[Rfam]
Nucleotides: 082
Stems, first nucleotide, its partner, number of pairs: 001068005007062002011057004016051001
Number, partner (000 for none) and nucleotide at each position: 001068c002067g003066u004065a005064u006000g007062g008061u009000g010000u011057c012056u013055g014054g015000c016051c017000a018000c019000u020000u021000u022000u023000u024000a025000u026000c027000u028000u029000c030000u031000u032000g033000u034000a035000g036000a037000a038000g039000u040000a041000u042000a043000a044000a045000g046000a047000g048000g049000a050000a051016g052000a053000a054014c055013u056012a057011g058000a059000u060000a061008g062007c063000g064005a065004u066003a067002c068001g069000g070000a071000c072000c073000a074000a075000u076000a077000u078000a079000a080000g081000g082000u
Shown here is an 82-nucleotide RNA sequence from Vibrio rumoiensis, a member of the family "L31-Gammaproteobacteria ribosomal protein leader". For this family Rfam cites "Discovery of 20 novel ribosomal leader candidates in bacteria and archaea" (Eckert and Weinberg, BMC Microbiol, 2020). The family is grouped with related families in Rfam's "Ribosomal Protein L31 Leader clan". Rfam's curators put it in the seed alignment.